[Rfam]
RNA sequence: AUGCCCCAUGACGCUCAGGUCCGCCGCAUCUCCUGGGUUCUGUGGGGUCGGUCGGCCGACGCUGAUAACAGCGGCAUCCUCGUACCGCUUUCGGACUGUCGGCCGACCCCUUU
Numbered sequence: 001a002u003g004c005c006c007c008a009u010g011a012c013g014c015u016c017a018g019g020u021c022c023g024c025c026g027c028a029u030c031u032c033c034u035g036g037g038u039u040c041u042g043u044g045g046g047g048u049c050g051g052u053c054g055g056c057c058g059a060c061g062c063u064g065a066u067a068a069c070a071g072c073g074g075c076a077u078c079c080u081c082g083u084a085c086c087g088c089u090u091u092c093g094g095a096c097u098g099u100c101g102g103c104c105g106a107c108c109c110c111u112u113u
Base pairs, nucleotide, nucleotide: 003048004047005046006045007044008043009042010040014037015036016035017034018033019032050108051107052106053105054104055103056102057101058100059099060098